The record is an 84-nucleotide RNA, which matches "mir-31 microRNA precursor family" in Rfam. The match comes from Rfam's covariance-model search (64 bits). Clan: mir-31 microRNA precursor family. Rfam links the family to the GO terms gene silencing by miRNA and RISC complex. The literature on the family includes a 2003 paper in Dev Cell by Aravin et al., "The small RNA profile during Drosophila melanogaster development".

RNA sequence: GAGUGUCUAGAAGGCAAGAUGUCGGCAUAGCUGAUGUUCUUUUAAAUAUUUCGGCUGUGUCACAUCCAGCCAGCCAAACACUCG
Numbered sequence: 001g002a003g004u005g006u007c008u009a010g011a012a013g014g015c016a017a018g019a020u021g022u023c024g025g026c027a028u029a030g031c032u033g034a035u036g037u038u039c040u041u042u043u044a045a046a047u048a049u050u051u052c053g054g055c056u057g058u059g060u061c062a063c064a065u066c067c068a069g070c071c072a073g074c075c076a077a078a079c080a081c082u083c084g
Stems, first nucleotide, its partner, number of pairs: 005079002008076001010074001013071003018066004024061008
Dot-bracket structure: ....((.(.(..(((..((((..((((((((......................)))))))).))))..)))..).).)).....